Record summary
Shown here is a 52-nucleotide RNA from Marmota monax, a member of the family "mir-1302 microRNA precursor family". Rfam links the family to the GO terms RISC complex and miRNA-mediated post-transcriptional gene silencing. Pairs were carried over by alignment from the consensus structure, which was predicted with WAR.
RNA sequence: AUUUUAGUGUAAGUAUGUCCCAUGCAAUUUGGGGGACAUACUUAUACUAAAC
Numbered sequence: 001a002u003u004u005u006a007g008u009g010u011a012a013g014u015a016u017g018u019c020c021c022a023u024g025c026a027a028u029u030u031g032g033g034g035g036a037c038a039u040a041c042u043u044a045u046a047c048u049a050a051a052c
Base pairs, nucleotide, nucleotide: 006048007047008046009045010044011043012042014040015039016038018036019035020034021033